[Rfam]
About this RNA:
This 372-nucleotide RNA sequence from Oceanomicrobium pacificus belongs to the Rfam family "Bacterial RNase P class A". The base pairs follow the family's consensus structure, which is taken from published work. The source organism's lineage runs through Bacteria, Pseudomonadota, Alphaproteobacteria, Paracoccaceae and Oceanomicrobium.

RNA sequence: GCGGAUGGCCGGACGAUCGCACCCCUCGGGGUGAGGAAAGUCCGGACUCCGGGAAGGCAUGGCGCCGGGUAACGCCCGGCCGGGGCAACCCGAGGGACAGCGCCACAGAAAACAGACCGCCGCCGGUGCGCCGGAGGCAAGGGUGAAACGGUGGGGUAAGAGCCCACCGCGGGACUGGCAACAGGACCGGCACGGCAAGCCCCGCCAGGAGCAAUGCCAAAUAGGGACCGCGCGGGCCUUCGGGCCCAGGCCGCUUCCAGCCAGCGGUCCGGGUUGGCAGCAAGAGCGCAUCGGCAACGGUGCGCCCAGAUGAAUGAUCGUCGGCGGACAUAUGUCCGGCCACAGAAUCCGGCUUACAGGCCAUCCGCACAC
Numbered sequence: 001g002c003g004g005a006u007g008g009c010c011g012g013a014c015g016a017u018c019g020c021a022c023c024c025c026u027c028g029g030g031g032u033g034a035g036g037a038a039a040g041u042c043c044g045g046a047c048u049c050c051g052g053g054a055a056g057g058c059a060u061g062g063c064g065c066c067g068g069g070u071a072a073c074g075c076c077c078g079g080c081c082g083g084g085g086c087a088a089c090c091c092g093a094g095g096g097a098c099a100g101c102g103c104c105a106c107a108g109a110a111a112a113c114a115g116a117c118c119g120c121c122g123c124c125g126g127u128g129c130g131c132c133g134g135a136g137g138c139a140a141g142g143g144u145g146a147a148a149c150g151g152u153g154g155g156g157u158a159a160g161a162g163c164c165c166a167c168c169g170c171g172g173g174a175c176u177g178g179c180a181a182c183a184g185g186a187c188c189g190g191c192a193c194g195g196c197a198a199g200c201c202c203c204g205c206c207a208g209g210a211g212c213a214a215u216g217c218c219a220a221a222u223a224g225g226g227a228c229c230g231c232g233c234g235g236g237c238c239u240u241c242g243g244g245c246c247c248a249g250g251c252c253g254c255u256u257c258c259a260g261c262c263a264g265c266g267g268u269c270c271g272g273g274u275u276g277g278c279a280g281c282a283a284g285a286g287c288g289c290a291u292c293g294g295c296a297a298c299g300g301u302g303c304g305c306c307c308a309g310a311u312g313a314a315u316g317a318u319c320g321u322c323g324g325c326g327g328a329c330a331u332a333u334g335u336c337c338g339g340c341c342a343c344a345g346a347a348u349c350c351g352g353c354u355u356a357c358a359g360g361c362c363a364u365c366c367g368c369a370c371a372c
Base pairs, nucleotide, nucleotide: 001368002367003366004365005364006363007362008361009360010359011357012322013321014320015319016318017317018316020033021032022031023030024029038355039354040353042352043351044350045349046348047211048210049209050208056256057255060207061206062205063204064203065079066078067077068076069075080094081092082091083090084089095202096201100200101199102196103195104194117142118141119138120137121136123134124133125132126131150168151167152166153165154164155163169191170189171188172187175184176183177182215279216278217277218276225270226269227268228267229266230265249262250261251260286305287304288303289302290301291300292299293298